[Rfam]
RNA sequence: GAAUUGUAUGUGAGAAUUGGAGGAAAUUAAACCAAUUUAGUUAUCAUUUACACAUUUGGCUUAAUUUUCUCCGAUAUCUCAUCUCCAAUUU
Numbered sequence: 001g002a003a004u005u006g007u008a009u010g011u012g013a014g015a016a017u018u019g020g021a022g023g024a025a026a027u028u029a030a031a032c033c034a035a036u037u038u039a040g041u042u043a044u045c046a047u048u049u050a051c052a053c054a055u056u057u058g059g060c061u062u063a064a065u066u067u068u069c070u071c072c073g074a075u076a077u078c079u080c081a082u083c084u085c086c087a088a089u090u091u
Stems, first nucleotide, its partner, number of pairs: 004088003008084001011081004016075006023068008032059002
Rfam assigns this 91-nucleotide sequence from Hibiscus trionum to the family "MIR2275 microRNA precursor family". Rfam 15.1 lists 785 matches to the family in 111 species.